The family of this 99-nucleotide RNA from Uncinocarpus reesii is "Small nucleolar RNA Z13/snr52". The family's consensus secondary structure was predicted with PFOLD. Gene Ontology terms of the family: RNA processing and nucleolus. Lineage of the source: Eukaryota > Opisthokonta > saccharomyceta > Onygenales > Uncinocarpus reesii. The family's RNA type in Rfam is C/D-box small nucleolar RNA. It is one of the family's seed sequences.
[Rfam]
RNA sequence: GUUGUCAUCUGAUGAAAUACUACGGAUGUAAAUCACAGACCUGUUCUGAAGCGCAAUACGAUGUGGAUAUUUUCCGUUGCCUUCCUUCUGAUUUGACAU
Numbered sequence: 001g002u003u004g005u006c007a008u009c010u011g012a013u014g015a016a017a018u019a020c021u022a023c024g025g026a027u028g029u030a031a032a033u034c035a036c037a038g039a040c041c042u043g044u045u046c047u048g049a050a051g052c053g054c055a056a057u058a059c060g061a062u063g064u065g066g067a068u069a070u071u072u073u074c075c076g077u078u079g080c081c082u083u084c085c086u087u088c089u090g091a092u093u094u095g096a097c098a099u
Base pairs, nucleotide, nucleotide: 003098004097005096023076024075025074026073